The family of this 146-nucleotide sequence from Agrobacterium albertimagni is "Alphaproteobacterial sRNA ar9".
The source organism's lineage runs through Bacteria, Pseudomonadota, Alphaproteobacteria, Hyphomicrobiales and Agrobacterium albertimagni.
For this family Rfam cites "A survey of sRNA families in alpha-proteobacteria" (del Val et al., RNA Biol, 2012).
By type it is a small RNA.
A search with the family's covariance model found it, with a score of 111 bits.
RNA sequence: AUAAAAGAGGCAGGGAGUACAAAUCUUUGCCACACUCGCGGUCAAGUCUUGGGAGGAUCAGAUCUAGGCGCGCCCGUUCGCAGCCCCUUAAUUGGUGAAGGAUCACGCGAAGCUUCGAACAAGGUCUUUUGACCUUGUUUUUUUUU
Numbered sequence: 001a002u003a004a005a006a007g008a009g010g011c012a013g014g015g016a017g018u019a020c021a022a023a024u025c026u027u028u029g030c031c032a033c034a035c036u037c038g039c040g041g042u043c044a045a046g047u048c049u050u051g052g053g054a055g056g057a058u059c060a061g062a063u064c065u066a067g068g069c070g071c072g073c074c075c076g077u078u079c080g081c082a083g084c085c086c087c088u089u090a091a092u093u094g095g096u097g098a099a100g101g102a103u104c105a106c107g108c109g110a111a112g113c114u115u116c117g118a119a120c121a122a123g124g125u126c127u128u129u130u131g132a133c134c135u136u137g138u139u140u141u142u143u144u145u146u
Base pairs, nucleotide, nucleotide: 003146004145005144006143011029012028013027014026015025016024037109038108039107040106046058047057048056049055061104062103063102064101065100067085068084069083070081071080072079086095087094118139119138120137121136122135123134124133125132